[Rfam]
About this RNA:
Shown here is a 96-nucleotide RNA, a member of the family "DUF3800-X RNA". By type it is a small RNA. Pairs were carried over by alignment from the consensus structure, which is taken from published work.

RNA sequence: GGGCGGUUAAACGUCGCGUGCUAUUUUCGCGCGACGGCCCGCCGAAAGGAUGAGCCCGCCGGACGGCGGCUGGGAGCGAGUAGGCGGGUGCCGCCC
Numbered sequence: 001g002g003g004c005g006g007u008u009a010a011a012c013g014u015c016g017c018g019u020g021c022u023a024u025u026u027u028c029g030c031g032c033g034a035c036g037g038c039c040c041g042c043c044g045a046a047a048g049g050a051u052g053a054g055c056c057c058g059c060c061g062g063a064c065g066g067c068g069g070c071u072g073g074g075a076g077c078g079a080g081u082a083g084g085c086g087g088g089u090g091c092c093g094c095c096c
Stems, first nucleotide, its partner, number of pairs: 001096006037089007056069005